[Rfam]
RNA sequence: UAUGCAAUAAGGCCGAAUUUCCUGUCUAAGGAAUACGGGGGAACUAAUUCACGGGGCGAAUCCUAACCAAAGGAGGUGUGAUAUUUACAGAAGGAUGGGUGCCCUCUACCCAAGCCCGGCAACUAACCCCGGAGGCCAAAGGAGGGAGAAAAA
Numbered sequence: 001u002a003u004g005c006a007a008u009a010a011g012g013c014c015g016a017a018u019u020u021c022c023u024g025u026c027u028a029a030g031g032a033a034u035a036c037g038g039g040g041g042a043a044c045u046a047a048u049u050c051a052c053g054g055g056g057c058g059a060a061u062c063c064u065a066a067c068c069a070a071a072g073g074a075g076g077u078g079u080g081a082u083a084u085u086u087a088c089a090g091a092a093g094g095a096u097g098g099g100u101g102c103c104c105u106c107u108a109c110c111c112a113a114g115c116c117c118g119g120c121a122a123c124u125a126a127c128c129c130c131g132g133a134g135g136c137c138a139a140a141g142g143a144g145g146g147a148g149a150a151a152a153a
Stems, first nucleotide, its partner, number of pairs: 011137004019033005036131005045053001054117003062094003097111004
RNA: c-di-AMP riboswitch aptamer (ydaO/yuaA leader)
Organism: Desulfotomaculum nigrificans